[Rfam]
RNA sequence: CUUUGCUUUCAGCUUCUUUACAGUGUUGCCUUGUGGCAUGGAGUUCAAGCAGCAUUGUACAGGGCUAUCAAAGCAUGG
Number, nucleotide and partner (000 for none) at each position: 001c000002u000003u000004u000005g000006c000007u000008u000009u000010c000011a000012g000013c000014u064015u063016c062017u061018u000019u059020a058021c057022a056023g055024u054025g053026u052027u051028g050029c000030c049031u048032u047033g046034u000035g000036g000037c000038a000039u000040g000041g000042a000043g000044u000045u000046c033047a032048a031049g030050c028051a027052g026053c025054a024055u023056u022057g021058u020059a019060c000061a017062g016063g015064g014065c000066u000067a000068u000069c000070a000071a000072a000073g000074c000075a000076u000077g000078g000